Annotation: A member of the RNA family "mir-190 microRNA precursor family" from Hermetia illucens, 78 nucleotides long. The family is grouped with related families in Rfam's "mir-50 clan". The family's consensus secondary structure was predicted with RNAalifold. Taxonomically the source falls in Hermetia (Eukaryota, Bilateria, Ecdysozoa, Endopterygota). The match comes from Rfam's covariance-model search (77 bits). Rfam 15.1 lists 1,667 matches to the family in 854 species.
[Rfam]
RNA sequence: GCUACGGUUAGAUAUGUUUGAUAUUCUUGGUUGUUGCUUUAGUUCUCACCCAGGAAUCAAACAUAUUAUUACCGUGGU
Numbered sequence: 001g002c003u004a005c006g007g008u009u010a011g012a013u014a015u016g017u018u019u020g021a022u023a024u025u026c027u028u029g030g031u032u033g034u035u036g037c038u039u040u041a042g043u044u045c046u047c048a049c050c051c052a053g054g055a056a057u058c059a060a061a062c063a064u065a066u067u068a069u070u071a072c073c074g075u076g077g078u
Base pairs, nucleotide, nucleotide: 005074006073007072008071011067012066013065014064015063016062017061018060019059020058021057022056024054025053029051030050032048033047